Shown here is a 168-nucleotide RNA sequence from Nostoc sp. ATCC 43529, a member of the family "Ribosomal protein L10 leader".
Lineage of the source: Bacteria > Cyanophyceae > Nostocales > Nostocaceae > Nostoc.
A search with the family's covariance model found it, with a score of 73 bits.
Pairs were carried over by alignment from the consensus structure, which was predicted with CMfinder.
The family's RNA type in Rfam is cis-regulatory leader.
A reference for the family is Zengel and Lindahl (1994), "Diverse mechanisms for regulating ribosomal protein synthesis in Escherichia coli", Prog Nucleic Acid Res Mol Biol.
RNA sequence: AAAAUUAAAUAGUCAAAGCCGGAGACAGCAGGUGCUAGCAGCUUAAUAUCCUGCCGAGGUGAAAACUCUAAUUGCCAGAAUUGCCACCGAUAAAGGUGUAAUAAGUAUGGCGUCAUGAGUUUUACUAAUUAACCCCGGCUGAGACAGUCGGGGUUUGUUGUUUUGGAU
Numbered sequence: 001a002a003a004a005u006u007a008a009a010u011a012g013u014c015a016a017a018g019c020c021g022g023a024g025a026c027a028g029c030a031g032g033u034g035c036u037a038g039c040a041g042c043u044u045a046a047u048a049u050c051c052u053g054c055c056g057a058g059g060u061g062a063a064a065a066c067u068c069u070a071a072u073u074g075c076c077a078g079a080a081u082u083g084c085c086a087c088c089g090a091u092a093a094a095g096g097u098g099u100a101a102u103a104a105g106u107a108u109g110g111c112g113u114c115a116u117g118a119g120u121u122u123u124a125c126u127a128a129u130u131a132a133c134c135c136c137g138g139c140u141g142a143g144a145c146a147g148u149c150g151g152g153g154u155u156u157g158u159u160g161u162u163u164u165g166g167a168u
Base pairs, nucleotide, nucleotide: 028054029053030052031051032050034042035041036040133153134152135151136150137149138148139147140146141145